[Rfam]
RNA sequence: AUACGAAAAAGACAAAAUUGCUGCAUAGCGAUGUCGCAAAGCUAAAGGGGCUUUAUUGGUAUAAUCAAACCAAUAGGAUAGCCAGCUGCCGAA
Numbered sequence: 001a002u003a004c005g006a007a008a009a010a011g012a013c014a015a016a017a018u019u020g021c022u023g024c025a026u027a028g029c030g031a032u033g034u035c036g037c038a039a040a041g042c043u044a045a046a047g048g049g050g051c052u053u054u055a056u057u058g059g060u061a062u063a064a065u066c067a068a069a070c071c072a073a074u075a076g077g078a079u080a081g082c083c084a085g086c087u088g089c090c091g092a093a
Stems, first nucleotide, its partner, number of pairs: 013036001017032006040087004047083002049079001051077001056073004
Description:
Rfam assigns this 93-nucleotide RNA from Paenibacillus foliorum to the family "c-di-GMP-I riboswitch aptamer". Pairs were carried over by alignment from the consensus structure, which is taken from published work. Gene Ontology term of the family: cyclic-di-GMP binding. It scores 56 bits against the family's covariance model.